[Rfam]
RNA sequence: GACUAGUCAUUGCGAUAGUAAUCCUGCUCAGUACGAGAGGAACCGCAGGUUCGGACAUUUGGUUCACGCACUCGGUCGAGCGGCCGGUGGUGCGAAGCUACCAUCCGUGGGAUUAUGCCGGAACGCCUCUAAGGCCGUAUCCUCUCUAGUCGAAGGUGGCAAUGAUAUCUCUAGGAGUCUCGUGAGUCGAAAGGCUCAAAACAAUGUGACACUACUAGGCGGCCGGUCCACGGACCGGUCGUCGCACGAGCCCGGUUUGCCGUACGGCGCCAUCGCCCGUCGUCGGGAUCUCACCGCUACGACGGCACGGCGUCUAACGGUCGAUCAUGGGUUUCGCAAGUUCGAUGUCGAGACUCGGAAUCGUCUGUAGACGACUUAGGUACCUGGCGGGGUGUUGUACUCGGUAGAGCAGUUACCACGCUGCGAUCUGUUGAGACUCAGCCCUCGGCUUGGGGAUUCGU
Numbered sequence: 001g002a003c004u005a006g007u008c009a010u011u012g013c014g015a016u017a018g019u020a021a022u023c024c025u026g027c028u029c030a031g032u033a034c035g036a037g038a039g040g041a042a043c044c045g046c047a048g049g050u051u052c053g054g055a056c057a058u059u060u061g062g063u064u065c066a067c068g069c070a071c072u073c074g075g076u077c078g079a080g081c082g083g084c085c086g087g088u089g090g091u092g093c094g095a096a097g098c099u100a101c102c103a104u105c106c107g108u109g110g111g112a113u114u115a116u117g118c119c120g121g122a123a124c125g126c127c128u129c130u131a132a133g134g135c136c137g138u139a140u141c142c143u144c145u146c147u148a149g150u151c152g153a154a155g156g157u158g159g160c161a162a163u164g165a166u167a168u169c170u171c172u173a174g175g176a177g178u179c180u181c182g183u184g185a186g187u188c189g190a191a192a193g194g195c196u197c198a199a200a201a202c203a204a205u206g207u208g209a210c211a212c213u214a215c216u217a218g219g220c221g222g223c224c225g226g227u228c229c230a231c232g233g234a235c236c237g238g239u240c241g242u243c244g245c246a247c248g249a250g251c252c253c254g255g256u257u258u259g260c261c262g263u264a265c266g267g268c269g270c271c272a273u274c275g276c277c278c279g280u281c282g283u284c285g286g287g288a289u290c291u292c293a294c295c296g297c298u299a300c301g302a303c304g305g306c307a308c309g310g311c312g313u314c315u316a317a318c319g320g321u322c323g324a325u326c327a328u329g330g331g332u333u334u335c336g337c338a339a340g341u342u343c344g345a346u347g348u349c350g351a352g353a354c355u356c357g358g359a360a361u362c363g364u365c366u367g368u369a370g371a372c373g374a375c376u377u378a379g380g381u382a383c384c385u386g387g388c389g390g391g392g393u394g395u396u397g398u399a400c401u402c403g404g405u406a407g408a409g410c411a412g413u414u415a416c417c418a419c420g421c422u423g424c425g426a427u428c429u430g431u432u433g434a435g436a437c438u439c440a441g442c443c444c445u446c447g448g449c450u451u452g453g454g455g456a457u458u459c460g461u
Stems, first nucleotide, its partner, number of pairs: 006166008016148003021051001023049005052107004060100003067094005072087006109143003117135003177354006358459005364378001367375001386449001388447002390444003394437002402430003406427001409424005
This 461-nucleotide part of an RNA from Camponotus floridanus belongs to the Rfam family "Eukaryotic large subunit ribosomal RNA". A search with the family's covariance model found it, with a score of 2863 bits. Pairs were carried over by alignment from the consensus structure, which is taken from published work. The family has 88 seed sequences and 107,465 matches in Rfam 15.1.